[Rfam]
RNA sequence: CAGCGUUCUCAGGGCGGGGCGAAAUUCCCCACCGGCGGUGUUUGCGUUAACGCGCAUCAGCCCGCGAGCGCCCGGCUUUUUCAAGGAAGCCGGGGUCAGCAGAUUCGGUUGAACUCCGAAGCCGACGGUCACAGUCCGGAUGAAAGAGAGCGCGA
Numbered sequence: 001c002a003g004c005g006u007u008c009u010c011a012g013g014g015c016g017g018g019g020c021g022a023a024a025u026u027c028c029c030c031a032c033c034g035g036c037g038g039u040g041u042u043u044g045c046g047u048u049a050a051c052g053c054g055c056a057u058c059a060g061c062c063c064g065c066g067a068g069c070g071c072c073c074g075g076c077u078u079u080u081u082c083a084a085g086g087a088a089g090c091c092g093g094g095g096u097c098a099g100c101a102g103a104u105u106c107g108g109u110u111g112a113a114c115u116c117c118g119a120a121g122c123c124g125a126c127g128g129u130c131a132c133a134g135u136c137c138g139g140a141u142g143a144a145a146g147a148g149a150g151c152g153c154g155a
Stems, first nucleotide, its partner, number of pairs: 003153008017029003031135002033124002035065004060122002068100002104120005126138003
The family of this 155-nucleotide sequence from Polaromonas eurypsychrophila is "FMN riboswitch aptamer (RFN element)". Rfam's curators write: The RFN element is a highly conserved domain that is found frequently in the 5'-untranslated regions of prokaryotic mRNAs that encode for flavin mononucleotide (FMN) biosynthesis and transport proteins. Pairs were carried over by alignment from the consensus structure, which is taken from published work. NCBI's taxonomy places the organism under Bacteria, Betaproteobacteria, Burkholderiales, Comamonadaceae, Polaromonas.